[Rfam]
Shown here is a 90-nucleotide sequence from Oceanisphaera arctica, a member of the family "Glycine riboswitch aptamer".
NCBI's taxonomy places the organism under Bacteria, Pseudomonadati, Pseudomonadota, Gammaproteobacteria, Oceanisphaera.
Rfam 15.1 lists 9,425 matches to the family in 5,228 species.
The match comes from Rfam's covariance-model search (62 bits).
RNA sequence: CCGCGGCUCGCAGGAGAGAGAAGUCAUUUAUGCUUCCGCCGAAGGCGCAAACUCCCAUAAACGCUCAGGCACAGGUACUGCGACCCAUUU
Numbered sequence: 001c002c003g004c005g006g007c008u009c010g011c012a013g014g015a016g017a018g019a020g021a022a023g024u025c026a027u028u029u030a031u032g033c034u035u036c037c038g039c040c041g042a043a044g045g046c047g048c049a050a051a052c053u054c055c056c057a058u059a060a061a062c063g064c065u066c067a068g069g070c071a072c073a074g075g076u077a078c079u080g081c082g083a084c085c086c087a088u089u090u
Stems, first nucleotide, its partner, number of pairs: 006085001008083006020036004038070003041066002045064003051058001
Rfam links the family to the GO term glycine biosynthetic process.